[Rfam]
RNA: Rhizobiales sRNA Atu_At1
Organism: Kaistia soli
RNA sequence: GACGGAGGCGCGUCAACCGGACGUGGCGGCAGAGGGAACAGGGUGAUUUUUCCGGUUUCUUACCCUGGCCAACGCAAAGGCAGUCGAGCCCUUAUCCCGCCCGCCUC
Numbered sequence: 001g002a003c004g005g006a007g008g009c010g011c012g013u014c015a016a017c018c019g020g021a022c023g024u025g026g027c028g029g030c031a032g033a034g035g036g037a038a039c040a041g042g043g044u045g046a047u048u049u050u051u052c053c054g055g056u057u058u059c060u061u062a063c064c065c066u067g068g069c070c071a072a073c074g075c076a077a078a079g080g081c082a083g084u085c086g087a088g089c090c091c092u093u094a095u096c097c098c099g100c101c102c103g104c105c106u107c
Stems, first nucleotide, its partner, number of pairs: 006106004011023004025101003028097002033092004039067007068081003